RNA sequence: CCGACCGAAACAUGUCGAAGCAUGACCUCCGCCGAGGUAGUCCGUGGGGUAGAGCGACCGAUUGUGGUGUCCGCCUCCGAGAGGAGUCGGCUCCACUGUCAAACUCCAAACCUACGGACGCUGUCGACGCGGGGAGUCCGGUAUGCGGGGUAAGCCUGUGUACCGUGAGGGAGACAACCCAGAGCUGGGUUAAGGUCCCAAAGUGUGGAUUAAGUGCGAUCGAAGGUGGUCUCAAGCCCUAAACAGCCGGGAGGUGAGCUUAGAAGCAGCUACCCUCUAAGAAAAGCGUAACAGCUUACCGGCCGAGGUUUGAGGCGCCCAAAAUGAUCGGGGCUCAAAUCCACCACCGAGACCUGGCCGCGCCCUUUACCGGGCGACCGCGUAGGUCGGCGCUCUGAUUGGGUGGAAGCAGGGGUGAGAACUCCUGUGGACCGAUCAGUGACGAAAAU
Numbered sequence: 001c002c003g004a005c006c007g008a009a010a011c012a013u014g015u016c017g018a019a020g021c022a023u024g025a026c027c028u029c030c031g032c033c034g035a036g037g038u039a040g041u042c043c044g045u046g047g048g049g050u051a052g053a054g055c056g057a058c059c060g061a062u063u064g065u066g067g068u069g070u071c072c073g074c075c076u077c078c079g080a081g082a083g084g085a086g087u088c089g090g091c092u093c094c095a096c097u098g099u100c101a102a103a104c105u106c107c108a109a110a111c112c113u114a115c116g117g118a119c120g121c122u123g124u125c126g127a128c129g130c131g132g133g134g135a136g137u138c139c140g141g142u143a144u145g146c147g148g149g150g151u152a153a154g155c156c157u158g159u160g161u162a163c164c165g166u167g168a169g170g171g172a173g174a175c176a177a178c179c180c181a182g183a184g185c186u187g188g189g190u191u192a193a194g195g196u197c198c199c200a201a202a203g204u205g206u207g208g209a210u211u212a213a214g215u216g217c218g219a220u221c222g223a224a225g226g227u228g229g230u231c232u233c234a235a236g237c238c239c240u241a242a243a244c245a246g247c248c249g250g251g252a253g254g255u256g257a258g259c260u261u262a263g264a265a266g267c268a269g270c271u272a273c274c275c276u277c278u279a280a281g282a283a284a285a286g287c288g289u290a291a292c293a294g295c296u297u298a299c300c301g302g303c304c305g306a307g308g309u310u311u312g313a314g315g316c317g318c319c320c321a322a323a324a325u326g327a328u329c330g331g332g333g334c335u336c337a338a339a340u341c342c343a344c345c346a347c348c349g350a351g352a353c354c355u356g357g358c359c360g361c362g363c364c365c366u367u368u369a370c371c372g373g374g375c376g377a378c379c380g381c382g383u384a385g386g387u388c389g390g391c392g393c394u395c396u397g398a399u400u401g402g403g404u405g406g407a408a409g410c411a412g413g414g415g416u417g418a419g420a421a422c423u424c425c426u427g428u429g430g431a432c433c434g435a436u437c438a439g440u441g442a443c444g445a446a447a448a449u
Stems, first nucleotide, its partner, number of pairs: 001390006011024005026136001027134006036122003040119008052107001053105002060100003064096004069091001073088001075086004140164009169180003184358007194348003203345001205344006225319003229316010246303005252276003257271003277281001282297001286295002359380002361376005391444001393441001395439008409428008
The record is a 449-nucleotide part of an RNA from Halorientalis sp. IM1011, which matches "Archaeal large subunit ribosomal RNA" in Rfam. The family is grouped with related families in Rfam's "LSU clan". The base pairs follow the family's consensus structure, which is taken from published work.